[Rfam]
Nucleotides: 154
Base pairs, nucleotide, nucleotide: 002153003152005150006149007148009146010145011144012143013142015140016139017138018137019136020135021134022133023132025130026129027128028127030125031124032123034121035120036119037118038117039116040115041114042113043112044111045110046109047108048107051104052103053102054101056099057098058097059096061094062093063092065090066089067088068087069082070081071080072079073078
Number, partner (000 for none) and nucleotide at each position: 001000c002153c003152c004000a005150c006149a007148c008000c009146c010145a011144u012143g013142u014000g015140u016139g017138u018137a019136g020135g021134a022133c023132c024000c025130c026129a027128a028127a029000g030125g031124a032123u033000c034121a035120c036119c037118a038117u039116u040115a041114a042113a043112u044111u045110u046109g047108g048107u049000a050000c051104a052103g053102a054101u055000a056099u057098c058097u059096a060000a061094a062093a063092a064000c065090g066089u067088c068087a069082u070081c071080a072079c073078a074000u075000u076000g077000g078073u079072g080071u081070g082069g083000g084000a085000c086000u087068u088067g089066a090065c091000u092063u093062u094061u095000c096059u097058a098057g099056a100000g101054a102053u103052c104051u105000a106000c107048g108047c109046c110045a111044a112043a113042u114041u115040u116039a117038a118037u119036g120035g121034u122000a123032a124031u125030c126000c127028u128027u129026u130025g131000a132023g133022g134021u135020c136019c137018u138017a139016c140015a141000c142013a143012c144011a145010u146009g147000a148007g149006u150005g151000c152003g153002g154000g

A member of the RNA family "MIR8565 microRNA precursor family" from Amborella trichopoda, 154 nucleotides long. Rfam links the family to the GO terms miRNA-mediated post-transcriptional gene silencing and RISC complex. The source organism's lineage runs through Eukaryota, Streptophyta, Streptophytina, Embryophyta and Amborella.